Shown here is a 169-nucleotide sequence from Eubacterium sp. CAG:38, a member of the family "Clostridiales-1 RNA".
[Rfam]
RNA sequence: UGAUAUCAGGGCUGCAAAGUAUUUCACCCACAUGAGCUUGCUCAUAGGUGGGUGAAAUACCUUGCAACCCACCCCAAUAUGAGCAUAAAAGUGGGAUGACAGUCCCACGAUAUGCGAAUAUUGGGUAGGAUUGUGAGAGUGCGCAGCACGGAACAAUCCGUAGAUAUCA
Numbered sequence: 001u002g003a004u005a006u007c008a009g010g011g012c013u014g015c016a017a018a019g020u021a022u023u024u025c026a027c028c029c030a031c032a033u034g035a036g037c038u039u040g041c042u043c044a045u046a047g048g049u050g051g052g053u054g055a056a057a058u059a060c061c062u063u064g065c066a067a068c069c070c071a072c073c074c075c076a077a078u079a080u081g082a083g084c085a086u087a088a089a090a091g092u093g094g095g096a097u098g099a100c101a102g103u104c105c106c107a108c109g110a111u112a113u114g115c116g117a118a119u120a121u122u123g124g125g126u127a128g129g130a131u132u133g134u135g136a137g138a139g140u141g142c143g144c145a146g147c148a149c150g151g152a153a154c155a156a157u158c159c160g161u162a163g164a165u166a167u168c169a
Base pairs, nucleotide, nucleotide: 001169002168003167004166005165006164007163011068013066014065017062019060020059021058022057023056024055025054026053027052028051029050030049031048032045033044034043035042036041073125074124075123076122077121078120079119080118083115084114085113086112091108092107093106094105095104096103097102128159129158130157131156132155133154134153139149140148141147142146